[Rfam]
RNA: Small Cajal body specific RNA 1
Organism: Callorhinchus milii
RNA sequence: AUGCACCAGAUACUAACCUGGCUAUCUAUGUCAAAGCUCUGUUGUAGAUCUGAGACAAUCCUGUGAUUGUUGGGUCCAAAUGGUGCAAGAUUAAACCAAGCCAUGAGUACAUAUUAGCUCAUCGUGCGCAGAAACACUAUGGGUUAUAACUUAGAGGCACAAUG
Dot-bracket structure: ..((((((.......(((.(((.(((.(((((..((.(((.....))).))..)))).).....))).))).))).....)))))).............(((.....................((........))..(.(((((....))))).))))......